[Rfam]
About this RNA:
FMN riboswitch aptamer (RFN element): a 119-nucleotide RNA from Ancrocorticia populi. Gene Ontology term of the family: FMN binding.

RNA sequence: AAUGUGCUCCGGGGUCAGUGAAAGUCUGAACCGGCGGUGAUAGUCCGCGACCCACGAAAGUGGUUGAAGAGGUGAAAUUCCCCUACCGACGGUUAAAGUCCGGAUGGGAGGCGCACUAC
Numbered sequence: 001a002a003u004g005u006g007c008u009c010c011g012g013g014g015u016c017a018g019u020g021a022a023a024g025u026c027u028g029a030a031c032c033g034g035c036g037g038u039g040a041u042a043g044u045c046c047g048c049g050a051c052c053c054a055c056g057a058a059a060g061u062g063g064u065u066g067a068a069g070a071g072g073u074g075a076a077a078u079u080c081c082c083c084u085a086c087c088g089a090c091g092g093u094u095a096a097a098g099u100c101c102g103g104a105u106g107g108g109a110g111g112c113g114c115a116c117u118a119c
Stems, first nucleotide, its partner, number of pairs: 004116004009111002016028003030099002032088002034048004043086002052063002068084002071081002090102003

Background:
From the family's description: The RFN element is a highly conserved domain that is found frequently in the 5'-untranslated regions of prokaryotic mRNAs that encode for flavin mononucleotide (FMN) biosynthesis and transport proteins.